This 85-nucleotide RNA from Betta splendens belongs to the Rfam family "mir-301 microRNA precursor family". The match comes from Rfam's covariance-model search (72 bits).
RNA sequence: AGGGGUCAGCUGCUUUGACGAUGUUGCACUACUGUACCAUCCGCUAAAGUAGUGCAAUAGUAUUGUCAUAGCAUUGGGCCUUUGU
Numbered sequence: 001a002g003g004g005g006u007c008a009g010c011u012g013c014u015u016u017g018a019c020g021a022u023g024u025u026g027c028a029c030u031a032c033u034g035u036a037c038c039a040u041c042c043g044c045u046a047a048a049g050u051a052g053u054g055c056a057a058u059a060g061u062a063u064u065g066u067c068a069u070a071g072c073a074u075u076g077g078g079c080c081u082u083u084g085u
Base pairs, nucleotide, nucleotide: 002082003081004080007077009075011073012072013071014070016068017067018066019065023058024057025056026055027054028053029052030051034042
Pairs were carried over by alignment from the consensus structure, which was predicted with WAR.